[Rfam]
RNA sequence: CUCAGAAAAGAGCUAACUUAUUGAAAAAUAGGGGCGCAAAAUCACGGGUCUAAGGCAUUAGCUAUGGCAGCCGGAUUACCUGA
Numbered sequence: 001c002u003c004a005g006a007a008a009a010g011a012g013c014u015a016a017c018u019u020a021u022u023g024a025a026a027a028a029u030a031g032g033g034g035c036g037c038a039a040a041a042u043c044a045c046g047g048g049u050c051u052a053a054g055g056c057a058u059u060a061g062c063u064a065u066g067g068c069a070g071c072c073g074g075a076u077u078a079c080c081u082g083a
Stems, first nucleotide, its partner, number of pairs: 012037002017032006040077004045073003048068003055062002
RNA: c-di-GMP-I riboswitch aptamer
Organism: Lentibacillus populi